[Rfam]
RNA sequence: UUUGUUUCAAGGCAAACCAUCUGAAAGGAUGGGACGCAAAGCCACGGGUCUAAUGCUGCUGAGCAGCUAAGGCAGCCGGGUUGCCAGA
Number, nucleotide and partner (000 for none) at each position: 001u000002u000003u000004g000005u000006u000007u000008c000009a000010a000011g000012g037013c036014a000015a000016a000017c032018c031019a030020u029021c028022u027023g000024a000025a000026a000027g022028g021029a020030u019031g018032g017033g000034a000035c000036g013037c012038a000039a000040a082041g081042c080043c079044a000045c078046g077047g076048g073049u072050c071051u000052a000053a000054u000055g067056c066057u065058g064059c000060u000061g000062a000063g000064c058065a057066g056067c055068u000069a000070a000071g050072g049073c048074a000075g000076c047077c046078g045079g043080g042081u041082u040083g000084c000085c000086a000087g000088a000
RNA: c-di-GMP-I riboswitch aptamer